[Rfam]
RNA sequence: CCUUUGGAGCGUUAUAUCAAACGUGAGUAGUCUGUUCUUCGGGACGGCAAAAGCGGACGCAGUGAAUGAGGAA
Numbered sequence: 001c002c003u004u005u006g007g008a009g010c011g012u013u014a015u016a017u018c019a020a021a022c023g024u025g026a027g028u029a030g031u032c033u034g035u036u037c038u039u040c041g042g043g044a045c046g047g048c049a050a051a052a053g054c055g056g057a058c059g060c061a062g063u064g065a066a067u068g069a070g071g072a073a
Base pairs, nucleotide, nucleotide: 001071002070003069004068009060010059011058012057013056022055023054024053030048031047032046036044